[Rfam]
RNA sequence: GGACUGGCUCUAGCUCUGUAGUUUCUUCCGGUCAAGCCUUCGCUUGCCAACCACUCUUGCUUGCGGGGAUGGUUGGAGACCCACAGGUGCCCUCCAGUCCUUUA
Numbered sequence: 001g002g003a004c005u006g007g008c009u010c011u012a013g014c015u016c017u018g019u020a021g022u023u024u025c026u027u028c029c030g031g032u033c034a035a036g037c038c039u040u041c042g043c044u045u046g047c048c049a050a051c052c053a054c055u056c057u058u059g060c061u062u063g064c065g066g067g068g069a070u071g072g073u074u075g076g077a078g079a080c081c082c083a084c085a086g087g088u089g090c091c092c093u094c095c096a097g098u099c100c101u102u103u104a
Stems, first nucleotide, its partner, number of pairs: 002099006013088003018084002021081001026078007
This 104-nucleotide RNA sequence from Molossus molossus belongs to the Rfam family "Vault RNA".
By type it is a non-coding RNA gene.
Rfam 15.1 lists 2,873 matches to the family in 431 species.
Lineage of the source: Eukaryota > Deuterostomia > Chordata > Chiroptera > Molossus.